[Rfam]
RNA: c-di-AMP riboswitch aptamer (ydaO/yuaA leader)
RNA sequence: GUAAUUCAAUUGCCGAGUCCAUUACGGAGCGGGGGACCCGAAACUCGGGGUGAAUCGCACAGUGCGUAGGGCGUCCUUUCGUCCGAACCCGUCAGCUAACCUCGCAGGCAGAAUAAGGAGAGGAA
Numbered sequence: 001g002u003a004a005u006u007c008a009a010u011u012g013c014c015g016a017g018u019c020c021a022u023u024a025c026g027g028a029g030c031g032g033g034g035g036a037c038c039c040g041a042a043a044c045u046c047g048g049g050g051u052g053a054a055u056c057g058c059a060c061a062g063u064g065c066g067u068a069g070g071g072c073g074u075c076c077u078u079u080c081g082u083c084c085g086a087a088c089c090c091g092u093c094a095g096c097u098a099a100c101c102u103c104g105c106a107g108g109c110a111g112a113a114u115a116a117g118g119a120g121a122g123g124a125a
Base pairs, nucleotide, nucleotide: 011110012109013108014107018028019027020026029105030104031103032102033101034100039047040046048090049089050088056066057065058064059063069084070083071082072081